Rfam assigns this 87-nucleotide RNA from Medicago truncatula to the family "MIR2617 microRNA precursor family".
The organism belongs to Medicago, within Eukaryota.

RNA sequence: UUGAAGUGUGACAUGCCCGUUUGGGAAUUACUCUGAUGUAUGUUUAUUUGUUAAUUAAUUGAUUAUUGGGAACGGGGUGUUACAUCG
Dot-bracket structure: .....(((((((((.((((((.................................................)))))))))))))))..